The record is a 110-nucleotide RNA sequence from Cloacibacterium normanense, which matches "SAM riboswitch aptamer (S box leader)" in Rfam. The base pairs follow the family's consensus structure, which is taken from published work.

RNA sequence: AACUUAUUAAGAAAGGUGGAGGGAAUUGACCCUGCGAAACCUUGGCAACCUGCUAACAGAAAUGAGAGUAAGGUGCCAAAUUCAACCCCGAAGUUCGGGAAAGAUAAGUC
Numbered sequence: 001a002a003c004u005u006a007u008u009a010a011g012a013a014a015g016g017u018g019g020a021g022g023g024a025a026u027u028g029a030c031c032c033u034g035c036g037a038a039a040c041c042u043u044g045g046c047a048a049c050c051u052g053c054u055a056a057c058a059g060a061a062a063u064g065a066g067a068g069u070a071a072g073g074u075g076c077c078a079a080a081u082u083c084a085a086c087c088c089c090g091a092a093g094u095u096c097g098g099g100a101a102a103g104a105u106a107a108g109u110c
Base pairs, nucleotide, nucleotide: 002109003108004107005106006105007104008103013043014042015041016040017039021032022031023030026085027084028083029082044077045076046075047074049073050072051070052069053068054067081102086099087098088097090095
The organism belongs to Cloacibacterium, within Bacteria.